[Rfam]
Overview: Rfam assigns this 70-nucleotide RNA to the family "L31-Actinobacteria ribosomal protein leader". Clan: Ribosomal Protein L31 Leader clan.

RNA sequence: CUGGUUCCGGUUCACGUCCUAGCCUGCGGGCCGCCCCGGCCACGCGCGAGGCGACGACGACCCGGCGACC
Numbered sequence: 001c002u003g004g005u006u007c008c009g010g011u012u013c014a015c016g017u018c019c020u021a022g023c024c025u026g027c028g029g030g031c032c033g034c035c036c037c038g039g040c041c042a043c044g045c046g047c048g049a050g051g052c053g054a055c056g057a058c059g060a061c062c063c064g065g066c067g068a069c070c
Stems, first nucleotide, its partner, number of pairs: 003070003007065004015059004020054001022052004
By type it is a cis-regulatory leader.